Annotation: Rfam assigns this 86-nucleotide RNA from Bacillus smithii to the family "pan motif". The family's consensus secondary structure is taken from published work. A search with the family's covariance model found it, with a score of 61 bits. Taxonomically the source falls in Bacillus smithii (Bacteria, Bacillati, Bacilli, Bacillus).
[Rfam]
RNA sequence: UGGGCAGUAUCCAAGACGCGAACUGCACCUUGAGUAAAUCAAUAAAAUGUUUGUCUGCCUUGAUCCAUAGUGACAGGGACAGAGGG
Numbered sequence: 001u002g003g004g005c006a007g008u009a010u011c012c013a014a015g016a017c018g019c020g021a022a023c024u025g026c027a028c029c030u031u032g033a034g035u036a037a038a039u040c041a042a043u044a045a046a047a048u049g050u051u052u053g054u055c056u057g058c059c060u061u062g063a064u065c066c067a068u069a070g071u072g073a074c075a076g077g078g079a080c081a082g083a084g085g086g
Stems, first nucleotide, its partner, number of pairs: 002029002004026005010021002055082003058078005064073002